[Rfam]
Annotation: The record is a 118-nucleotide RNA from Proteiniborus sp. DW1, which matches "Guanidine-I riboswitch aptamer" in Rfam. The organism belongs to Proteiniborus, within Bacteria. From the family's description: This family represents a conserved RNA structure found upstream of the ykkC and yxkD genes in Bacillus subtilis and related genes in other bacteria. Pairs were carried over by alignment from the consensus structure. For this family Rfam cites "Metabolism of Free Guanidine in Bacteria Is Regulated by a Widespread Riboswitch Class" (Nelson et al., Mol Cell, 2017).
RNA sequence: UGAAAGUGUACCUAGGGUUCCGAGGUGCUUAUUAGCAUUUGUCUGGUCCGAGCGGUACAGAUAUUACUAUGCUUAUUUUAAAGUAAUAUUACACCUUGGGGAUAAAAGCCCGGACGGG
Numbered sequence: 001u002g003a004a005a006g007u008g009u010a011c012c013u014a015g016g017g018u019u020c021c022g023a024g025g026u027g028c029u030u031a032u033u034a035g036c037a038u039u040u041g042u043c044u045g046g047u048c049c050g051a052g053c054g055g056u057a058c059a060g061a062u063a064u065u066a067c068u069a070u071g072c073u074u075a076u077u078u079u080a081a082a083g084u085a086a087u088a089u090u091a092c093a094c095c096u097u098g099g100g101g102a103u104a105a106a107a108g109c110c111c112g113g114a115c116g117g118g
Stems, first nucleotide, its partner, number of pairs: 007059006015049002020046002022043001023040006060090008092113001094116001099111003